Actinobacteria sRNA Ms_IGR-5: a 216-nucleotide RNA sequence from Kineococcus radiotolerans. The family's RNA type in Rfam is small RNA. NCBI's taxonomy places the organism under Bacteria, Bacillati, Kineosporiaceae, Kineococcus, Kineococcus radiotolerans.
[Rfam]
RNA sequence: ACACGGGAAGGAGGUGGUCCGAACACAUGGUUUCUCAUCGGACGCGUGAGGUGGCUGCCCGCUAGCAGCUGCGUGCAGGACGCGGACCGCUCUGGUCGCCCCGCGCAGCGCGGCGAAUCCACGGCAGUCACCGGGUCCCCGGGCGCCGGGUUGUCCACCGGCCCACGUCGACGGUCUCGUGACCGGCGGCGCGGAAGCGCCCGGGGACUUCUCCCU
Number, nucleotide and partner (000 for none) at each position: 001a000002c000003a000004c000005g000006g000007g000008a000009a000010g000011g000012a000013g059014g058015u057016g056017g055018u054019c000020c000021g000022a000023a000024c000025a000026c000027a000028u000029g000030g000031u000032u000033u000034c000035u000036c000037a000038u000039c000040g000041g000042a000043c000044g000045c000046g000047u000048g000049a000050g000051g000052u000053g000054g018055c017056u016057g015058c014059c013060c115061g114062c113063u112064a000065g111066c110067a000068g109069c108070u107071g106072c000073g104074u103075g102076c000077a000078g000079g000080a000081c000082g000083c000084g000085g000086a000087c000088c000089g000090c000091u000092c000093u000094g000095g000096u000097c000098g000099c000100c000101c000102c075103g074104c073105g000106c071107a070108g069109c068110g066111c065112g063113g062114c061115g060116a000117a000118u000119c000120c000121a000122c000123g000124g000125c000126a000127g000128u000129c000130a000131c000132c000133g210134g209135g208136u207137c206138c205139c204140c203141g202142g201143g200144c199145g198146c000147c000148g000149g000150g000151u000152u000153g000154u000155c000156c000157a000158c000159c000160g000161g000162c000163c000164c000165a000166c000167g000168u000169c000170g000171a000172c000173g000174g000175u000176c000177u000178c000179g000180u000181g000182a000183c000184c000185g000186g000187c000188g000189g000190c000191g000192c000193g000194g000195a000196a000197g000198c145199g144200c143201c142202c141203g140204g139205g138206g137207a136208c135209u134210u133211c000212u000213c000214c000215c000216u000

The base pairs follow the family's consensus structure.
It scores 92 bits against the family's covariance model.